[Rfam]
RNA: Clostridiales-1 RNA
RNA sequence: UGAAAGUCCCGGACGGCGGCCAUGGAUCCGCACAAUGCUUGCAUGCACAGACAUAUGGACAUCGGAUGGGCAAACCAGUAUAUGUAAGCAGGGCGAUCAAUCGCCUGGUUUACGAAUACCGGCAGCGAUUGCAGGUGCGCAAAGCGCGGAGCAAUCGACUUUCA
Number, nucleotide and partner (000 for none) at each position: 001u164002g163003a162004a161005a160006g159007u158008c070009c069010c068011g067012g000013a000014c000015g063016g062017c000018g060019g000020c058021c057022a056023u055024g054025g000026a000027u051028c050029c000030g048031c000032a000033c000034a000035a044036u043037g042038c000039u000040u000041g000042c037043a036044u035045g000046c000047a000048c030049a000050g028051a027052c000053a000054u024055a023056u022057g021058g020059a000060c018061a000062u016063c015064g000065g000066a000067u011068g010069g009070g008071c000072a000073a000074a000075c122076c121077a000078g119079u118080a117081u116082a000083u000084g113085u112086a111087a110088g000089c000090a000091g106092g105093g104094c103095g102096a101097u000098c000099a000100a000101u096102c095103g094104c093105c092106u091107g000108g000109u000110u087111u086112a085113c084114g000115a000116a081117u080118a079119c078120c000121g076122g075123c000124a000125g000126c157127g156128a155129u154130u153131g152132c151133a000134g000135g000136u000137g147138c146139g145140c144141a000142a000143a000144g140145c139146g138147c137148g000149g000150a000151g132152c131153a130154a129155u128156c127157g126158a007159c006160u005161u004162u003163c002164a001